[Rfam]
The family of this 75-nucleotide RNA sequence from Haemonchus placei is "mir-5928 microRNA precursor family". Pairs were carried over by alignment from the consensus structure, which was predicted with RNAalifold.

RNA sequence: GGCGCCAACUUGAAGUAGAGUAGAUUAGUAUGGUCAGUUGAUACUACCAAUCCACUCUAUUUCAAAUUUGGGCCC
Numbered sequence: 001g002g003c004g005c006c007a008a009c010u011u012g013a014a015g016u017a018g019a020g021u022a023g024a025u026u027a028g029u030a031u032g033g034u035c036a037g038u039u040g041a042u043a044c045u046a047c048c049a050a051u052c053c054a055c056u057c058u059a060u061u062u063c064a065a066a067u068u069u070g071g072g073c074c075c
Stems, first nucleotide, its partner, number of pairs: 001074003005070001007068002011064011023052001025050002028047003033042003